Group II catalytic intron D1-D4-3: a 172-nucleotide sequence from Succinatimonas hippei. On this family, see Bonen and Vogel, Trends Genet 2001: "The ins and outs of group II introns". Rfam links the family to the GO term Group II intron splicing.
[Rfam]
RNA sequence: GAUGCCGUGAGGCAUUGGCUGAAAGCAGUGUGAUGGCAUGACUCAAGCGCUCCGACGAAUAGAAAUCGCAUCAGGCCGCCAAGUCGGGAGAGUCUGCCAAACAAGACGUAACCCAAAUCUGUAACGUAAGACGAAACGGUAAAUGCGGCGGAGCCGAGUUAAGGAUUAGUGU
Numbered sequence: 001g002a003u004g005c006c007g008u009g010a011g012g013c014a015u016u017g018g019c020u021g022a023a024a025g026c027a028g029u030g031u032g033a034u035g036g037c038a039u040g041a042c043u044c045a046a047g048c049g050c051u052c053c054g055a056c057g058a059a060u061a062g063a064a065a066u067c068g069c070a071u072c073a074g075g076c077c078g079c080c081a082a083g084u085c086g087g088g089a090g091a092g093u094c095u096g097c098c099a100a101a102c103a104a105g106a107c108g109u110a111a112c113c114c115a116a117a118u119c120u121g122u123a124a125c126g127u128a129a130g131a132c133g134a135a136a137c138g139g140u141a142a143a144u145g146c147g148g149c150g151g152a153g154c155c156g157a158g159u160u161a162a163g164g165a166u167u168a169g170u171g172u
Base pairs, nucleotide, nucleotide: 001016002015003014004013005012006011028172029171030170031169037164041159042158043157044156049155050153051152052151053150054149066148067147068146069145070144075140076139077138083132084131085130086114087113088112092107093106094105095104